Shown here is a 79-nucleotide RNA from Crocodylus porosus, a member of the family "Mammalian CPEB3 ribozyme". Pairs were carried over by alignment from the consensus structure, which is taken from published work. The match comes from Rfam's covariance-model search (37 bits).

RNA sequence: AGAGGUUGCAAGUUCAGGCAACAGCAGAAGCACUCACAGCAUGGCCUGGUCAGAUUCCAACAAAUCUGCAAAUUCUACU
Numbered sequence: 001a002g003a004g005g006u007u008g009c010a011a012g013u014u015c016a017g018g019c020a021a022c023a024g025c026a027g028a029a030g031c032a033c034u035c036a037c038a039g040c041a042u043g044g045c046c047u048g049g050u051c052a053g054a055u056u057c058c059a060a061c062a063a064a065u066c067u068g069c070a071a072a073u074u075c076u077a078c079u
Stems, first nucleotide, its partner, number of pairs: 015048005023079002026076004030042001051068006